RNA sequence: UGACCUCGGAUCAGGUAGGGAUACCCGCUGAACUUAAGCAUAUCAAUAAGCGGAGGAAAAGAAACCAACAGGGAUUGCCUCAGUAACGGCGAGUGAAGCGGCAACAGCUCAAAUUUGAAAUCUGGUCCUUUCAGGCCCCGAGUUGUAAUUUGUAGAGGAUGUUUCGGGCGCGGCGCGGGUCUAAGUCCUUUGGAACAGGGCGUCACAGAGGGUGAGAAUCCCGUAUGUGACCCGUGAUCAAGCCCAUGUGAAACCCCUUCGACGAGUCGAGUUGUUUGGGAAUGCAGCUCAAAAUGGGUGGUAAAUUUCAUCUAAAGCUAAAUACCGGCCAGAGACCGAUAGCGCACAAGUAGAGUGAUCGAAAGAUGAAAAGCACUUUGGAAAGAGAGUCAAAAAGUACGUGAAAUUGUUGAAAGGGAAG
Number, nucleotide and partner (000 for none) at each position: 001u000002g000003a000004c000005c000006u000007c000008g000009g000010a000011u000012c000013a000014g000015g000016u000017a000018g000019g000020g000021a000022u000023a000024c055025c053026c052027g051028c050029u049030g000031a000032a000033c000034u000035u042036a041037a000038g000039c000040a000041u036042a035043u000044c000045a000046a000047u000048a000049a029050g028051c027052g026053g025054a000055g024056g000057a000058a000059a000060a000061g000062a000063a000064a000065c072066c071067a000068a000069c000070a000071g066072g065073g000074a000075u000076u103077g102078c101079c100080u000081c000082a000083g000084u000085a000086a094087c093088g000089g000090c000091g000092a000093g087094u086095g000096a000097a000098g000099c000100g079101g078102c077103a076104a000105c000106a319107g318108c317109u316110c000111a000112a150113a149114u148115u147116u000117g000118a144119a143120a000121u141122c140123u000124g138125g137126u000127c135128c000129u000130u000131u000132c000133a000134g000135g127136c000137c125138c124139c000140g122141a121142g000143u119144u118145g000146u000147a115148a114149u113150u112151u000152g000153u000154a000155g260156a259157g257158g256159a000160u000161g000162u253163u252164u251165c250166g000167g244168g243169c242170g000171c000172g239173g238174c000175g235176c234177g233178g232179g231180u230181c229182u000183a000184a000185g201186u000187c200188c199189u198190u197191u000192g000193g000194a000195a000196c000197a190198g189199g188200g187201c185202g000203u000204c208205a000206c000207a000208g204209a000210g000211g221212g220213u000214g000215a000216g000217a000218a000219u000220c212221c211222c000223g000224u000225a000226u000227g000228u000229g181230a180231c179232c178233c177234g176235u175236g000237a000238u173239c172240a000241a000242g169243c168244c167245c000246a000247u000248g000249u000250g165251a164252a163253a162254c000255c000256c158257c157258u000259u156260c155261g000262a000263c000264g000265a000266g000267u000268c000269g290270a289271g288272u287273u286274g285275u284276u000277u000278g000279g000280g000281a000282a000283u000284g275285c274286a273287g272288c271289u270290c269291a000292a000293a000294a000295u000296g313297g312298g311299u310300g309301g000302u000303a000304a000305a000306u000307u000308u000309c300310a299311u298312c297313u296314a000315a000316a109317g108318c107319u106320a000321a000322a000323u000324a000325c000326c000327g000328g000329c000330c000331a000332g000333a000334g000335a000336c000337c000338g000339a000340u000341a000342g000343c000344g000345c000346a000347c000348a000349a000350g000351u000352a000353g360354a359355g000356u000357g000358a000359u354360c353361g000362a000363a000364a000365g000366a000367u000368g000369a000370a000371a000372a000373g000374c000375a000376c387377u386378u385379u384380g000381g000382a000383a000384a379385g378386a377387g376388a000389g000390u000391c000392a000393a000394a000395a000396a000397g000398u000399a000400c000401g000402u000403g000404a000405a000406a000407u000408u000409g000410u000411u000412g000413a000414a000415a000416g000417g000418g000419a000420a000421g000
RNA: Eukaryotic large subunit ribosomal RNA, nucleotides 1 to 421